[Rfam]
RNA: mir-24 microRNA precursor family
Organism: Scyliorhinus torazame
RNA sequence: AUCUCUCGUGCCUACUGAACUGAUAACAGUUACUAUAUUACAUACUGGCUCAGUUCAGCAGGAACAGGAG
Numbered sequence: 001a002u003c004u005c006u007c008g009u010g011c012c013u014a015c016u017g018a019a020c021u022g023a024u025a026a027c028a029g030u031u032a033c034u035a036u037a038u039u040a041c042a043u044a045c046u047g048g049c050u051c052a053g054u055u056c057a058g059c060a061g062g063a064a065c066a067g068g069a070g
Stems, first nucleotide, its partner, number of pairs: 003070004008065002011062003015058009027047004